[Rfam]
Shown here is a 132-nucleotide sequence from Chrysochloris asiatica, a member of the family "Small nucleolar RNA SNORA24". By type it is an H/ACA-box small nucleolar RNA. Pairs were carried over by alignment from the consensus structure, which was predicted with RNAfold. About the family: ACA24 is a member of the H/ACA class of snoRNA that guide the sites of modification of uridines to pseudouridines.
RNA sequence: GGCCAUGUAUCUUUGGGACCUACCAGCUGUGGCAGUCUCCCUUCAUAGCCGUGGAAGAGUAUAUUCUUGUUUACUGACAAAGCUGUUACCACUUAAUUGGUAUCAAAUUCUGAGUUGCACCAGUUAACAUUC
Numbered sequence: 001g002g003c004c005a006u007g008u009a010u011c012u013u014u015g016g017g018a019c020c021u022a023c024c025a026g027c028u029g030u031g032g033c034a035g036u037c038u039c040c041c042u043u044c045a046u047a048g049c050c051g052u053g054g055a056a057g058a059g060u061a062u063a064u065u066c067u068u069g070u071u072u073a074c075u076g077a078c079a080a081a082g083c084u085g086u087u088a089c090c091a092c093u094u095a096a097u098u099g100g101u102a103u104c105a106a107a108u109u110c111u112g113a114g115u116u117g118c119a120c121c122a123g124u125u126a127a128c129a130u131u132c
Base pairs, nucleotide, nucleotide: 003054004053005052006051007050015041016040017039018038020035021034023032024031068129069128070127071126074123075122076121078117079116080115084105085104088101089100090099091098